[Rfam]
RNA sequence: GUGUGUGAAUAGUGUUUAGCACCGAGGAUAGAUGUAUUUGCCUGUGCGUUGAUGGUGUUCAGGACCAAGGACAAAUCUGCUCGCCU
Numbered sequence: 001g002u003g004u005g006u007g008a009a010u011a012g013u014g015u016u017u018a019g020c021a022c023c024g025a026g027g028a029u030a031g032a033u034g035u036a037u038u039u040g041c042c043u044g045u046g047c048g049u050u051g052a053u054g055g056u057g058u059u060c061a062g063g064a065c066c067a068a069g070g071a072c073a074a075a076u077c078u079g080c081u082c083g084c085c086u
Stems, first nucleotide, its partner, number of pairs: 001072002010067001012065002015062002018059007026047001028045004033040002
mir-2060 microRNA precursor family: an 86-nucleotide RNA sequence from Branchiostoma lanceolatum. Pairs were carried over by alignment from the consensus structure, which was predicted with RNAalifold. The organism belongs to Branchiostoma, within Eukaryota.